[Rfam]
RNA: MIR158 microRNA precursor family
RNA sequence: ACACGUUAUCUCUGUUCUUCUUUGUUUACAUUCUGGAAAAAAGAAGUGAUGACGCCAUCGCACUUUUUCCAAAUGUAGACAAAGCAAAACCGUGAUAACGUAAG
Numbered sequence: 001a002c003a004c005g006u007u008a009u010c011u012c013u014g015u016u017c018u019u020c021u022u023u024g025u026u027u028a029c030a031u032u033c034u035g036g037a038a039a040a041a042a043g044a045a046g047u048g049a050u051g052a053c054g055c056c057a058u059c060g061c062a063c064u065u066u067u068u069c070c071a072a073a074u075g076u077a078g079a080c081a082a083a084g085c086a087a088a089a090c091c092g093u094g095a096u097a098a099c100g101u102a103a104g
Stems, first nucleotide, its partner, number of pairs: 003101008012092001014090003018086001020084010032073001034071001036069005046061006